[Rfam]
RNA sequence: GGGUAACCACUAAAAUCCCGAAAGGGUGGGCUAGUGGCGACCCUCC
Numbered sequence: 001g002g003g004u005a006a007c008c009a010c011u012a013a014a015a016u017c018c019c020g021a022a023a024g025g026g027u028g029g030g031c032u033a034g035u036g037g038c039g040a041c042c043c044u045c046c
Stems, first nucleotide, its partner, number of pairs: 001043004007037004017026003

The record is a 46-nucleotide sequence from Betacarmovirus brassicae, which matches "Turnip crinkle virus (TCV) repressor of minus strand synthesis H5" in Rfam.
The sequence is in the family's curated seed alignment.
The organism belongs to Betacarmovirus brassicae, within Viruses.
The family's RNA type in Rfam is cis-regulatory element.
This family represents the turnip crinkle virus (TCV) hairpin 5 (H5) which contains a large symmetrical internal loop (LSL). H5 can repress minus-strand synthesis when the 3' side of the LSL pairs with the 3'-terminal 4 bases of the RNA(GCCC-OH).